[Rfam]
RNA sequence: AUUAAUAAUAGAGGUCGCGUACCUCACAAAUUAAU
Numbered sequence: 001a002u003u004a005a006u007a008a009u010a011g012a013g014g015u016c017g018c019g020u021a022c023c024u025c026a027c028a029a030a031u032u033a034a035u
Stems, first nucleotide, its partner, number of pairs: 001035006011025005

Overview:
Shown here is a 35-nucleotide sequence from Lacinutrix sp. Hel_I_90, a member of the family "S16-Flavobacteria ribosomal protein leader". Taxonomically the source falls in Lacinutrix (Bacteria, Flavobacteriia, Flavobacteriales, Flavobacteriaceae). The sequence is in the family's curated seed alignment.